[Rfam]
RNA sequence: UGAGCGUGAUGAUGUUGGCGUUUGCCUAGUCUAGCUUAGAUAGUUAAACUAUC
Numbered sequence: 001u002g003a004g005c006g007u008g009a010u011g012a013u014g015u016u017g018g019c020g021u022u023u024g025c026c027u028a029g030u031c032u033a034g035c036u037u038a039g040a041u042a043g044u045u046a047a048a049c050u051a052u053c
Stems, first nucleotide, its partner, number of pairs: 002037004011031003017026003039053006
Shown here is a 53-nucleotide sequence from Amylolactobacillus amylophilus, a member of the family "L17 ribosomal protein downstream element". Pairs were carried over by alignment from the consensus structure, which is taken from published work. It scores 40 bits against the family's covariance model.